[Rfam]
RNA sequence: UCCGGGGGAAGCUCACCGCCGAGGCCACGCACUGGGUGCGCGUCACCCGUGGAUCCCCGCCUCGGGGAAGGUCUGAGGGAAGGGCCGCCCACGGCUCCAGCAGAGCCCCGCCCGCGAAAGGGGCGGGUGAGCCACCAGCAAGGGGGGGCGCCGCGUCACCGGGUUCAACCUGGGCAGGAGAAGCCGCUGCGGGUGCUUCCAAACACCCGCCGGUGGAUGCUCGUGGUGCCGCGGGGCUUUGAGACAGACUCACGGCCGGCGAUCGCUGAGUUCAAUGGGUGAGGUGGGGCAGCGCCCCACAACCCAAUUCAGACUACUCUCCCCCGGA
Numbered sequence: 001u002c003c004g005g006g007g008g009a010a011g012c013u014c015a016c017c018g019c020c021g022a023g024g025c026c027a028c029g030c031a032c033u034g035g036g037u038g039c040g041c042g043u044c045a046c047c048c049g050u051g052g053a054u055c056c057c058c059g060c061c062u063c064g065g066g067g068a069a070g071g072u073c074u075g076a077g078g079g080a081a082g083g084g085c086c087g088c089c090c091a092c093g094g095c096u097c098c099a100g101c102a103g104a105g106c107c108c109c110g111c112c113c114g115c116g117a118a119a120g121g122g123g124c125g126g127g128u129g130a131g132c133c134a135c136c137a138g139c140a141a142g143g144g145g146g147g148g149c150g151c152c153g154c155g156u157c158a159c160c161g162g163g164u165u166c167a168a169c170c171u172g173g174g175c176a177g178g179a180g181a182a183g184c185c186g187c188u189g190c191g192g193g194u195g196c197u198u199c200c201a202a203a204c205a206c207c208c209g210c211c212g213g214u215g216g217a218u219g220c221u222c223g224u225g226g227u228g229c230c231g232c233g234g235g236g237c238u239u240u241g242a243g244a245c246a247g248a249c250u251c252a253c254g255g256c257c258g259g260c261g262a263u264c265g266c267u268g269a270g271u272u273c274a275a276u277g278g279g280u281g282a283g284g285u286g287g288g289g290c291a292g293c294g295c296c297c298c299a300c301a302a303c304c305c306a307a308u309u310c311a312g313a314c315u316a317c318u319c320u321c322c323c324c325c326g327g328a
Stems, first nucleotide, its partner, number of pairs: 001328004007322003012283006020064005034048005073312005083257004093107005108126006127253005133247001147238003284300007
Nuclear RNase P: a 328-nucleotide sequence from Nyctiprogne leucopyga. On this family, see Brown, Nucleic Acids Res 1999: "The Ribonuclease P Database". The base pairs follow the family's consensus structure, which is taken from published work.